[Rfam]
U1 spliceosomal RNA: a 163-nucleotide RNA sequence from Cicer arietinum. For this family Rfam cites "Crystal structure at 1.92 A resolution of the RNA-binding domain of the U1A spliceosomal protein complexed with an RNA hairpin" (Oubridge et al., Nature, 1994). Taxonomically the source falls in Cicer (Eukaryota, Streptophytina, eudicotyledons, Fabales). Clan: U1 clan. The base pairs follow the family's consensus structure, which is taken from published work. U1 is a small nuclear RNA (snRNA) component of the spliceosome (involved in pre-mRNA splicing).
RNA sequence: AUACUUACCUGGAUGGGGUGAAUGGGUGAUCAAGAAGGCCCAUGACCUAGGCUAGUGACCUCCAACGCACAUAAAGGAGGGGUGCUACCUUAAGGUCUGCCCAAGUGGUGGAUCCUACAUCAUAAUUUGUGGUAGUGGGGGCAUGCGUUCACGCGGCCCCUUU
Numbered sequence: 001a002u003a004c005u006u007a008c009c010u011g012g013a014u015g016g017g018g019u020g021a022a023u024g025g026g027u028g029a030u031c032a033a034g035a036a037g038g039c040c041c042a043u044g045a046c047c048u049a050g051g052c053u054a055g056u057g058a059c060c061u062c063c064a065a066c067g068c069a070c071a072u073a074a075a076g077g078a079g080g081g082g083u084g085c086u087a088c089c090u091u092a093a094g095g096u097c098u099g100c101c102c103a104a105g106u107g108g109u110g111g112a113u114c115c116u117a118c119a120u121c122a123u124a125a126u127u128u129g130u131g132g133u134a135g136u137g138g139g140g141g142c143a144u145g146c147g148u149u150c151a152c153g154c155g156g157c158c159c160c161u162u163u
Stems, first nucleotide, its partner, number of pairs: 012121004016048004021043001023042005049090003055085003059081003062077002093116003096112003100108002137162005144155004